The family of this 110-nucleotide RNA from Kineococcus aurantiacus is "SAM (S-adenosyl methionine) riboswitch aptamer". Rfam describes the family as follows. SAM-IV is a mRNA element that regulates gene expression via direct sensing of S-adenosylmethionine (SAM or AdoMet). A search with the family's covariance model found it, with a score of 89 bits.

RNA sequence: GGUCAUGAGCGCCAGCGUCAAGCCCCGGCUCGCUGGCCGGCAACCCUGAUCCGUCGUGGGGUGCUCCGGGUGAGGACCAGGUCCACGGGAGGCGUGGGCAAGGACGACCC
Numbered sequence: 001g002g003u004c005a006u007g008a009g010c011g012c013c014a015g016c017g018u019c020a021a022g023c024c025c026c027g028g029c030u031c032g033c034u035g036g037c038c039g040g041c042a043a044c045c046c047u048g049a050u051c052c053g054u055c056g057u058g059g060g061g062u063g064c065u066c067c068g069g070g071u072g073a074g075g076a077c078c079a080g081g082u083c084c085a086c087g088g089g090a091g092g093c094g095u096g097g098g099c100a101a102g103g104a105c106g107a108c109c110c
Stems, first nucleotide, its partner, number of pairs: 001078004009038001011037006021030002039065003044061003047056002081099007